[Rfam]
RNA sequence: AUAUGAGGUAGAGGUCGCGAUGAUUAGGAAUGACAGUCGAGUAUGAGGAUACAGAGACACUGUCAGGAGGGAAAGUCGCCGAAAUAUCCGUUAGCCUCACUAACGGGUGUUGGGACAACAGUUGAUAGCUGUUGAACUGUCUUAGUUUGUAAAAACUAAGUUGCGCUAUUCUUGUC
Numbered sequence: 001a002u003a004u005g006a007g008g009u010a011g012a013g014g015u016c017g018c019g020a021u022g023a024u025u026a027g028g029a030a031u032g033a034c035a036g037u038c039g040a041g042u043a044u045g046a047g048g049a050u051a052c053a054g055a056g057a058c059a060c061u062g063u064c065a066g067g068a069g070g071g072a073a074a075g076u077c078g079c080c081g082a083a084a085u086a087u088c089c090g091u092u093a094g095c096c097u098c099a100c101u102a103a104c105g106g107g108u109g110u111u112g113g114g115a116c117a118a119c120a121g122u123u124g125a126u127a128g129c130u131g132u133u134g135a136a137c138u139g140u141c142u143u144a145g146u147u148u149g150u151a152a153a154a155a156c157u158a159a160g161u162u163g164c165g166c167u168a169u170u171c172u173u174g175u176c
Stems, first nucleotide, its partner, number of pairs: 007170005017079005024072001031065007083111012112138002116134007141160006

The record is a 176-nucleotide RNA sequence from Vagococcus allomyrinae, which matches "Lysine riboswitch aptamer" in Rfam. Rfam links the family to the GO term lysine biosynthetic process. From the family's description: Riboswitches are metabolite binding domains within certain messenger RNAs that serve as precision sensors for their corresponding targets.